[Rfam]
RNA sequence: CGCAUAUUUUGCCCAGGCGGAGCUCGACCGCCGAGGCAAGUGAUGAUCGAUUUCAUCGAUGAUCACCGCAACGUCUACGGUGUCGGGCCGAUCUGCACGGUGUUGCCGAUCGCAUCG
Numbered sequence: 001c002g003c004a005u006a007u008u009u010u011g012c013c014c015a016g017g018c019g020g021a022g023c024u025c026g027a028c029c030g031c032c033g034a035g036g037c038a039a040g041u042g043a044u045g046a047u048c049g050a051u052u053u054c055a056u057c058g059a060u061g062a063u064c065a066c067c068g069c070a071a072c073g074u075c076u077a078c079g080g081u082g083u084c085g086g087g088c089c090g091a092u093c094u095g096c097a098c099g100g101u102g103u104u105g106c107c108g109a110u111c112g113c114a115u116c117g
Base pairs, nucleotide, nucleotide: 016032017031018030019029020028078117079116080115081114082113089112090111092109093108095106096105097104
The record is a 117-nucleotide sequence from Salinisphaera orenii, which matches "ALIL pseudoknot" in Rfam. The organism belongs to Salinisphaera orenii subsp. orenii, within Bacteria. The family's RNA type in Rfam is cis-regulatory element.